Shown here is a 267-nucleotide sequence from Dulcicalothrix desertica, a member of the family "HNH endonuclease-associated RNA and ORF (HEARO) RNA". It is annotated as a non-coding RNA gene. On this family, see Weinberg et al., Nature 2009: "Exceptional structured noncoding RNAs revealed by bacterial metagenome analysis". NCBI's taxonomy places the organism under Bacteria, Bacillati, Cyanobacteriota, Dulcicalothrix, Dulcicalothrix desertica. Pairs were carried over by alignment from the consensus structure, which is taken from published work.
RNA sequence: GUCAACGACUCAGGGCUAAAGCCACUGAAGCUCUCUAGCGAUUGCUUGAAGUUUAAGGUUUUGGUUUUAGUUGACCAGACUCAGUACUUCGUUACUAUGUUAUUGGUAAGAGUUAAAGACCUACUCCGAGAUGCGUAGCUAGUCUCGUGACCCUAGAACUGAACGAUUAAAUAGACUUAUUGAGUGAAAGUCAGUGUCGUUUGGAUAGUACCGACCAAUAACUUUGUCGUUCACGAAGUGUCUCCCCUUGGGAGAAGCUAACAUUAC
Numbered sequence: 001g002u003c004a005a006c007g008a009c010u011c012a013g014g015g016c017u018a019a020a021g022c023c024a025c026u027g028a029a030g031c032u033c034u035c036u037a038g039c040g041a042u043u044g045c046u047u048g049a050a051g052u053u054u055a056a057g058g059u060u061u062u063g064g065u066u067u068u069a070g071u072u073g074a075c076c077a078g079a080c081u082c083a084g085u086a087c088u089u090c091g092u093u094a095c096u097a098u099g100u101u102a103u104u105g106g107u108a109a110g111a112g113u114u115a116a117a118g119a120c121c122u123a124c125u126c127c128g129a130g131a132u133g134c135g136u137a138g139c140u141a142g143u144c145u146c147g148u149g150a151c152c153c154u155a156g157a158a159c160u161g162a163a164c165g166a167u168u169a170a171a172u173a174g175a176c177u178u179a180u181u182g183a184g185u186g187a188a189a190g191u192c193a194g195u196g197u198c199g200u201u202u203g204g205a206u207a208g209u210a211c212c213g214a215c216c217a218a219u220a221a222c223u224u225u226g227u228c229g230u231u232c233a234c235g236a237a238g239u240g241u242c243u244c245c246c247c248u249u250g251g252g253a254g255a256a257g258c259u260a261a262c263a264u265u266a267c
Stems, first nucleotide, its partner, number of pairs: 001075006008068001010029001012026002015022002030039003078228003083096004099222009121156002125150002127147006136260005159204009171195002174192005180186001